Shown here is a 76-nucleotide sequence, a member of the family "chrB-a RNA". Rfam's curators put it in the seed alignment.
RNA sequence: UCCAUGGGGAUUGCGAUCUCCCCAUGAGGCGACAGCCGAAGCAUCGCGUCCCGAAAUUUUCCGAGGGCGCAUUAUG
Numbered sequence: 001u002c003c004a005u006g007g008g009g010a011u012u013g014c015g016a017u018c019u020c021c022c023c024a025u026g027a028g029g030c031g032a033c034a035g036c037c038g039a040a041g042c043a044u045c046g047c048g049u050c051c052c053g054a055a056a057u058u059u060u061c062c063g064a065g066g067g068c069g070c071a072u073u074a075u076g
Stems, first nucleotide, its partner, number of pairs: 005024006046070006
Dot-bracket structure: ....((((((........)))))).....................((((((.............))))))......